The record is a 115-nucleotide RNA sequence from Cohaesibacter sp. CAU 1516, which matches "Alphaproteobacterial ar14" in Rfam. Rfam describes the family as follows. Smr14C2 was renamed NfeR1 (Nodule Formation Efficiency RNA) highly expressed in salt stress and during the symbiotic interaction on legume roots. NCBI's taxonomy places the organism under Bacteria, Pseudomonadati, Alphaproteobacteria, Cohaesibacteraceae, Cohaesibacter. The base pairs follow the family's consensus structure.
[Rfam]
RNA sequence: CAAAUUCAGGCUUUCUUCUCCUCCCAAAAAGCCUGAUAGAUCCAAAACAUCCUCCUCCCGGUUUUGGAUCUUGCAACGAAGCCCACCGGACCUCCUCCCCCGGUGGGCUUUCGUU
Numbered sequence: 001c002a003a004a005u006u007c008a009g010g011c012u013u014u015c016u017u018c019u020c021c022u023c024c025c026a027a028a029a030a031g032c033c034u035g036a037u038a039g040a041u042c043c044a045a046a047a048c049a050u051c052c053u054c055c056u057c058c059c060g061g062u063u064u065u066g067g068a069u070c071u072u073g074c075a076a077c078g079a080a081g082c083c084c085a086c087c088g089g090a091c092c093u094c095c096u097c098c099c100c101c102g103g104u105g106g107g108c109u110u111u112c113g114u115u
Base pairs, nucleotide, nucleotide: 007035008034009033010032011031012030013029014028039070040069041068042067043066044065045064046063047062048061079110080109081108082107083106084105085104086103087102088101089100